[Rfam]
RNA sequence: AUGCUCCUAUGUUGUGUUAAGUGUUGGCAGAUAUCCGGCCCCCUCCCUAAGGGUCUGGACCUUGAACCCCGUUCUUCCCCCUCCCCAUACGAAGUCCGGGGUUUUUUUUGCCUGCGA
Numbered sequence: 001a002u003g004c005u006c007c008u009a010u011g012u013u014g015u016g017u018u019a020a021g022u023g024u025u026g027g028c029a030g031a032u033a034u035c036c037g038g039c040c041c042c043c044u045c046c047c048u049a050a051g052g053g054u055c056u057g058g059a060c061c062u063u064g065a066a067c068c069c070c071g072u073u074c075u076u077c078c079c080c081c082u083c084c085c086c087a088u089a090c091g092a093a094g095u096c097c098g099g100g101g102u103u104u105u106u107u108u109u110g111c112c113u114g115c116g117a
Stems, first nucleotide, its partner, number of pairs: 034059005040053002064105003067101005074094004
A member of the RNA family "Pseudomon-1/ErsA RNA" from Pseudomonas sp. v388, 117 nucleotides long. The source organism's lineage runs through Bacteria, Pseudomonadati, Pseudomonadota, Pseudomonadaceae and Pseudomonas. About the family: Functions to regulate the AlgC enzyme. Rfam links the family to the GO terms positive regulation of translation, ncRNA-mediated, sRNA-mediated gene silencing and mRNA binding. For this family Rfam cites "Post-transcriptional regulation of the virulence-associated enzyme AlgC by the sigma(22) -dependent small RNA ErsA of Pseudomonas aeruginosa" (Ferrara et al., Environ Microbiol, 2015). The match comes from Rfam's covariance-model search (121 bits). The family's RNA type in Rfam is small RNA.